[Rfam]
RNA sequence: CCAGUGUGAGGUAGUAGGUUGUAUAGUUAAGGACUACAUCUAACAAGGAGAAAACUGUACAACUUGCUAACUUUCCCUGG
Numbered sequence: 001c002c003a004g005u006g007u008g009a010g011g012u013a014g015u016a017g018g019u020u021g022u023a024u025a026g027u028u029a030a031g032g033a034c035u036a037c038a039u040c041u042a043a044c045a046a047g048g049a050g051a052a053a054a055c056u057g058u059a060c061a062a063c064u065u066g067c068u069a070a071c072u073u074u075c076c077c078u079g080g
Stems, first nucleotide, its partner, number of pairs: 001080004006075001008073003012069016031041003
This 80-nucleotide sequence from Strigamia maritima belongs to the Rfam family "let-7 microRNA precursor family". Clan: let-7 microRNA precursor clan. From the family's description: This family represents the microRNAs (miRNA) let-7 and mir-98. let-7 was identified from a study of developmental timing in C. elegans, and was later shown to be part of a much larger class of non-coding RNAs termed miRNAs. Lineage of the source: Eukaryota > Opisthokonta > Arthropoda > Pleurostigmophora > Strigamia. Its family is annotated with miRNA-mediated post-transcriptional gene silencing and RISC complex in the Gene Ontology.